[Rfam]
RNA sequence: GUCUCUGUUGGUGGUUUAAAUCUUUUAAUUAAUUAUUUUUUUUUUGUUGAAGCCUAUAUGGAGUCCUGAGCUGAAGAGAA
Numbered sequence: 001g002u003c004u005c006u007g008u009u010g011g012u013g014g015u016u017u018a019a020a021u022c023u024u025u026u027a028a029u030u031a032a033u034u035a036u037u038u039u040u041u042u043u044u045u046g047u048u049g050a051a052g053c054c055u056a057u058a059u060g061g062a063g064u065c066c067u068g069a070g071c072u073g074a075a076g077a078g079a080a
Stems, first nucleotide, its partner, number of pairs: 003078004
RNA: Small nucleolar RNA Z159/U59